[Rfam]
RNA sequence: GAUCACGAGUAUCGGCUGGGAGAUCACGAUCUCCCGAAAGCUCUGGCUGGCCGGUCGGCAACCCUUCCGCUGUGAUGGGGUGCUCCAGAUGACGAUCCGGCCGGUGUCCACCAUGUUCACCGGCAAGCACGGCGA
Number, nucleotide and partner (000 for none) at each position: 001g097002a096003u095004c094005a000006c000007g000008a000009g056010u000011a055012u054013c053014g052015g051016c050017u000018g000019g000020g000021a048022g047023a000024u000025c000026a000027c000028g000029a000030u000031c000032u000033c000034c000035c000036g000037a000038a000039a000040g000041c000042u000043c000044u000045g000046g000047c022048u021049g000050g016051c015052c014053g013054g012055u011056c009057g084058g083059c082060a000061a000062c080063c079064c078065u000066u075067c074068c000069g000070c000071u000072g000073u000074g067075a066076u000077g000078g064079g063080g062081u000082g059083c058084u057085c000086c000087a000088g000089a000090u000091g000092a000093c000094g004095a003096u002097c001098c000099g000100g124101c123102c122103g121104g120105u119106g118107u000108c000109c115110a000111c000112c000113a000114u000115g109116u000117u000118c106119a105120c104121c103122g102123g101124c100125a000126a000127g000128c000129a000130c000131g000132g000133c000134g000135a000
Rfam assigns this 135-nucleotide RNA sequence from Nesterenkonia sedimenti to the family "SAM (S-adenosyl methionine) riboswitch aptamer". SAM-IV is a mRNA element that regulates gene expression via direct sensing of S-adenosylmethionine (SAM or AdoMet). SAM-IV riboswitches share conserved nucleotide positions with the previously described SAM-I riboswitches sequence analysis and molecular recognition experiments suggest that SAM-I and SAM-IV riboswitches share similar ligand binding sites, but have different scaffolds. On this family, see Weinberg et al., RNA 2008: "The aptamer core of SAM-IV riboswitches mimics the ligand-binding site of SAM-I riboswitches". The base pairs follow the family's consensus structure, which is taken from published work.